A member of the RNA family "Small nucleolar RNA SNORA63" from Nannospalax galili, 130 nucleotides long.
RNA sequence: AAGCGGGAUUUAACUACAGUAUAGCUGUUAAGUGCUAUGUUGUCAUUCCCCCUGCUCAAAACAGUGUUGUUUCUUAACUAUACUGUCUGCUAGAUACCUGUAGCAGCCAGGGAUGCUUGGUCUCAUACAU
Number, nucleotide and partner (000 for none) at each position: 001a000002a000003g055004c054005g053006g052007g051008a000009u000010u000011u000012a000013a000014c000015u000016a043017c042018a041019g040020u039021a038022u037023a036024g035025c034026u000027g000028u000029u000030a000031a000032g000033u000034g025035c024036u023037a022038u021039g020040u019041u018042g017043u016044c000045a000046u000047u000048c000049c000050c000051c007052c006053u005054g004055c003056u000057c000058a000059a000060a000061a000062c000063a000064g000065u000066g000067u000068u000069g000070u000071u000072u000073c000074u000075u000076a000077a000078c000079u000080a000081u000082a000083c110084u109085g108086u000087c106088u105089g104090c103091u000092a000093g000094a000095u000096a000097c000098c000099u000100g000101u000102a000103g090104c089105a088106g087107c000108c085109a084110g083111g000112g000113a000114u000115g000116c000117u000118u000119g000120g000121u000122c000123u000124c000125a000126u000127a000128c000129a000130u000
On this family, see Mishra and Eliceiri, Proc Natl Acad Sci U S A 1997: "Three small nucleolar RNAs that are involved in ribosomal RNA precursor processing". The family's RNA type in Rfam is H/ACA-box small nucleolar RNA. NCBI's taxonomy places the organism under Eukaryota, Metazoa, Bilateria, Rodentia, Nannospalax. Rfam describes the family as follows. E3 belongs to the H/ACA class of snoRNAs and is involved in the processing of eukaryotic pre-rRNA and has regions of complementarity to 18S rRNA. E3 is encoded in introns in the gene for protein synthesis initiation factor 4AII. Rfam 15.1 lists 1,279 matches to the family in 601 species.